[Rfam]
RNA: 6A RNA
Organism: Fusobacterium necrophorum
RNA sequence: AGAUAUGCUCGUAUAGUAGCGAGCAAUUAAAUCAAAAGAAAUACUAGCGUGGA
Numbered sequence: 001a002g003a004u005a006u007g008c009u010c011g012u013a014u015a016g017u018a019g020c021g022a023g024c025a026a027u028u029a030a031a032u033c034a035a036a037a038g039a040a041a042u043a044c045u046a047g048c049g050u051g052g053a
Stems, first nucleotide, its partner, number of pairs: 006025006014046004